[Rfam]
RNA sequence: GCAGUCGGCCGGUUUGUCGCUUGCAUUUCGCAAGAGGAAAGUCCGGGCAACACAGAGCAUCCUACUUCCUAACAGAAAGCUGUCCGCGAGGGUAGAGUAAUGCAGAAGAAAAGAACCGCCUCUUCCGUCGGGAAGAGGUAAGGGUGAGAAGGUGAGGUAAGAGCUCACCAGCCGCGUGGCGACACGACGGGCUGUGCAUCUUAGGAGUUGUAAGGUCAUGUAUACCGACGUUAUGAGAGCUGCUCGCUCCAUGUCGGAGGGUAGACCGCUAAAGUGACGUGGUGACGCGCCACUCAGAUAAAUGACAAACACCUCUGGUCAUUGAGGUACAGAACCCGGCUUACAGGCCGACUGCUUUU
Numbered sequence: 001g002c003a004g005u006c007g008g009c010c011g012g013u014u015u016g017u018c019g020c021u022u023g024c025a026u027u028u029c030g031c032a033a034g035a036g037g038a039a040a041g042u043c044c045g046g047g048c049a050a051c052a053c054a055g056a057g058c059a060u061c062c063u064a065c066u067u068c069c070u071a072a073c074a075g076a077a078a079g080c081u082g083u084c085c086g087c088g089a090g091g092g093u094a095g096a097g098u099a100a101u102g103c104a105g106a107a108g109a110a111a112a113g114a115a116c117c118g119c120c121u122c123u124u125c126c127g128u129c130g131g132g133a134a135g136a137g138g139u140a141a142g143g144g145u146g147a148g149a150a151g152g153u154g155a156g157g158u159a160a161g162a163g164c165u166c167a168c169c170a171g172c173c174g175c176g177u178g179g180c181g182a183c184a185c186g187a188c189g190g191g192c193u194g195u196g197c198a199u200c201u202u203a204g205g206a207g208u209u210g211u212a213a214g215g216u217c218a219u220g221u222a223u224a225c226c227g228a229c230g231u232u233a234u235g236a237g238a239g240c241u242g243c244u245c246g247c248u249c250c251a252u253g254u255c256g257g258a259g260g261g262u263a264g265a266c267c268g269c270u271a272a273a274g275u276g277a278c279g280u281g282g283u284g285a286c287g288c289g290c291c292a293c294u295c296a297g298a299u300a301a302a303u304g305a306c307a308a309a310c311a312c313c314u315c316u317g318g319u320c321a322u323u324g325a326g327g328u329a330c331a332g333a334a335c336c337c338g339g340c341u342u343a344c345a346g347g348c349c350g351a352c353u354g355c356u357u358u359u
Stems, first nucleotide, its partner, number of pairs: 001355010011344001012310007020034005039342003043339005048210004055245004060206005065079003069075001080095001082093004096201002100199005116143002118139009151169006171192001172190003175186004214267004225257005237249004274293003278289004
Description:
This 359-nucleotide RNA from Bacteroides graminisolvens belongs to the Rfam family "Bacterial RNase P class A". The base pairs follow the family's consensus structure, which is taken from published work. The family's RNA type in Rfam is ribozyme.